[Rfam]
The family of this 112-nucleotide RNA from Synechococcus sp. WH 7803 is "TPP riboswitch aptamer (THI element)". Vitamin B(1) in its active form thiamin pyrophosphate (TPP) is an essential coenzyme that is synthesised by coupling of pyrimidine and thiazole moieties in bacteria. The previously detected thiamin-regulatory element, thi box was extended, resulting in a new, highly conserved RNA secondary structure, the THI element, which is widely distributed in eubacteria and also occurs in some archaea. Analysis of operon structures identified a large number of new candidate thiamin-regulated genes, mostly transporters, in various prokaryotic organisms. Pairs were carried over by alignment from the consensus structure, which is taken from published work. The organism belongs to Synechococcus, within Bacteria.

RNA sequence: GGAGACCACUAGGGGUGCCCGCGGCUGUUUUCUUGAGCGGCCUGGGCUGAGAUCACACCCUCCGAACCUGAUCCGGAUCAUGCCGGCGCCAGGGAAGUGAAAGCGCGUGAUC
Numbered sequence: 001g002g003a004g005a006c007c008a009c010u011a012g013g014g015g016u017g018c019c020c021g022c023g024g025c026u027g028u029u030u031u032c033u034u035g036a037g038c039g040g041c042c043u044g045g046g047c048u049g050a051g052a053u054c055a056c057a058c059c060c061u062c063c064g065a066a067c068c069u070g071a072u073c074c075g076g077a078u079c080a081u082g083c084c085g086g087c088g089c090c091a092g093g094g095a096a097g098u099g100a101a102a103g104c105g106c107g108u109g110a111u112c
Stems, first nucleotide, its partner, number of pairs: 007099004011061004016055001017047005067093004073086004

It scores 64 bits against the family's covariance model.